A member of the RNA family "Glycine riboswitch aptamer" from Ornithinibacillus bavariensis, 102 nucleotides long. Gene Ontology term of the family: glycine biosynthetic process. The organism belongs to Ornithinibacillus, within Bacteria.
RNA sequence: AUGAAUACAGGGGGAGAGAUUACUUUUCGUGCAUUCGAUAAGUAACGCCGAAGGAGCAAGCUUAUUAGCGAAUCUCUCAGGCAAAAGAACCCUUGUAGGACG
Numbered sequence: 001a002u003g004a005a006u007a008c009a010g011g012g013g014g015a016g017a018g019a020u021u022a023c024u025u026u027u028c029g030u031g032c033a034u035u036c037g038a039u040a041a042g043u044a045a046c047g048c049c050g051a052a053g054g055a056g057c058a059a060g061c062u063u064a065u066u067a068g069c070g071a072a073u074c075u076c077u078c079a080g081g082c083a084a085a086a087g088a089a090c091c092c093u094u095g096u097a098g099g100a101c102g
Base pairs, nucleotide, nucleotide: 006097007096008095009094010093011092012091013090020045021044022043023042024041025040047082048081049080050078051077054076055075056074060069061068